[Rfam]
RNA: mir-275 microRNA precursor family
Organism: Dolichomitus sp. PSUC_FEM 10030005
RNA sequence: AAGCCGCUCGUAACGCGUGCUACUCGGGUACUUCCGGCUGUGACUUUAUAGACCAGUCAGGUACCUGAAGUAGCGCGCGCCGCGUGCUGGUA
Dot-bracket structure: ........(((..(.(((((((.......((.(..((((...............)))).)))........))))))).)..)))........